[Rfam]
RNA sequence: UGAUGAGGUAGAGGUCGCGGUAAUUAAGAAUUACAGUUGAGUUUGAGGAAACGUUGAAACUGUAAGGAGGGAAAACCGCCGAAAUGAACAUAGCUCCUCAAGUUAUGUUUGUUGGGACAACAGUUGAUAGCUGUUGGACUGUCUUAGUUCGUGAGAAUUAAGUUGAGCUAUUUUUGUC
Dot-bracket structure: .....((((((.....(((((..(......((((((((...................))))))))......)..)))))...((((((((((((.......))))))))))))((..(((((((.....)))))))..))..((((((........)))))).....)))))).....

This 178-nucleotide RNA sequence from Vagococcus humatus belongs to the Rfam family "Lysine riboswitch aptamer". A search with the family's covariance model found it, with a score of 96 bits. The organism belongs to Vagococcus, within Bacteria. The family's consensus secondary structure is taken from published work.